[Rfam]
RNA: U7 small nuclear RNA
Organism: Neogobius melanostomus
Nucleotides: 053
Base pairs, nucleotide, nucleotide: 030050031049032048033047034046035045036044037043
Number, partner (000 for none) and nucleotide at each position: 001000a002000a003000g004000u005000u006000u007000u008000g009000c010000u011000c012000u013000u014000u015000u016000a017000a018000a019000c020000u021000u022000u023000u024000c025000c026000a027000g028000c029000a030050g031049g032048a033047g034046u035045c036044c037043u038000a039000u040000a041000a042000a043037a044036g045035g046034a047033u048032u049031c050030c051000c052000u053000c